Rfam assigns this 280-nucleotide RNA sequence from Marine Group I thaumarchaeote to the family "Archaeal RNase P". Rfam's curators write: Ribonuclease P (RNase P) is a ubiquitous endoribonuclease, found in archaea, bacteria and eukarya as well as chloroplasts and mitochondria. Its best characterised activity is the generation of mature 5'-ends of tRNAs by cleaving the 5'-leader elements of precursor-tRNAs.
[Rfam]
RNA sequence: GUGAGCUGGUGGACGACACGCUGCUACGGCAGAGGAAACUCCUCCCUUCAUACAGGAAGUGUGAUCUGUAGAUGGAUAGUCAGAGAUGGCUGGCAACAGAACAGAAAAAAAUCCCAUCUGGAGUGUACAGUGAUGGUACUGCCUGAGGUUUCCAGAGACGGAAUGAAAAUCUGUCCCACACGAAGCAAGGCCAAAACGAACCAUAUGUUCCUGUACUAGGUUCAGGUAGGCCGCAAAGCGAAAUAUCGUUAAAACAGAAGGAGGGUUACGGCCAGCACUC
Number, nucleotide and partner (000 for none) at each position: 001g280002u000003g278004a000005g276006c275007u274008g273009g272010u270011g269012g250013a249014c248015g247016a246017c000018a000019c000020g000021c032022u031023g030024c029025u000026a000027c000028g000029g024030c023031a022032g021033a000034g000035g000036a000037a267038a266039c265040u000041c264042c263043u262044c261045c260046c185047u184048u183049c182050a000051u215052a214053c213054a212055g211056g000057a000058a000059g181060u180061g179062u178063g177064a077065u076066c075067u074068g073069u000070a000071g000072a000073u068074g067075g066076a065077u064078a091079g090080u089081c088082a087083g000084a000085g000086a000087u082088g081089g080090c079091u078092g176093g175094c000095a000096a000097c173098a172099g171100a170101a000102c000103a000104g000105a000106a000107a000108a000109a000110a000111a000112u162113c161114c160115c157116a000117u156118c155119u154120g153121g152122a151123g000124u000125g000126u000127a000128c000129a000130g000131u000132g000133a000134u000135g143136g142137u000138a000139c000140u000141g000142c136143c135144u000145g000146a000147g000148g000149u000150u000151u122152c121153c120154a119155g118156a117157g115158a000159c000160g114161g113162a112163a000164u000165g000166a000167a000168a000169a000170u100171c099172u098173g097174u000175c093176c092177c063178a062179c061180a060181c059182g049183a048184a047185g046186c000187a000188a000189g232190g231191c230192c229193a000194a000195a000196a000197c000198g223199a222200a221201c220202c219203a000204u000205a000206u000207g000208u000209u000210c000211c055212u054213g053214u052215a051216c000217u000218a000219g202220g201221u200222u199223c198224a000225g000226g000227u000228a000229g192230g191231c190232c189233g000234c000235a000236a000237a000238g000239c000240g000241a000242a000243a000244u000245a000246u016247c015248g014249u013250u012251a000252a000253a000254a000255c000256a000257g000258a000259a000260g045261g044262a043263g042264g041265g039266u038267u037268a000269c011270g010271g000272c009273c008274a007275g006276c005277a000278c003279u000280c001
The source organism's lineage runs through Archaea, Thermoproteati, Nitrososphaerota and Marine Group I. It is annotated as a ribozyme. The family is grouped with related families in Rfam's "RNaseP clan". It scores 178 bits against the family's covariance model.